[Rfam]
Annotation
Rfam assigns this 84-nucleotide sequence from Hibiscus syriacus to the family "small nucleolar RNA snoR117". It scores 57 bits against the family's covariance model. Rfam links the family to the GO terms RNA processing and nucleolus. On this family, see Chen and Wu, Nucleic Acids Res 2009: "Mining small RNA sequencing data: a new approach to identify small nucleolar RNAs in Arabidopsis". It is annotated as a C/D-box small nucleolar RNA.
RNA sequence: UGCCUGUGACGUUCAAACAUUUUUCCGUACCAUCUGAGAUUUCUUUCUCUGAUGUAUUCUCUCGAAGAUUUGAUUCUGAGGCAU
Numbered sequence: 001u002g003c004c005u006g007u008g009a010c011g012u013u014c015a016a017a018c019a020u021u022u023u024u025c026c027g028u029a030c031c032a033u034c035u036g037a038g039a040u041u042u043c044u045u046u047c048u049c050u051g052a053u054g055u056a057u058u059c060u061c062u063c064g065a066a067g068a069u070u071u072g073a074u075u076c077u078g079a080g081g082c083a084u
Stems, first nucleotide, its partner, number of pairs: 001083004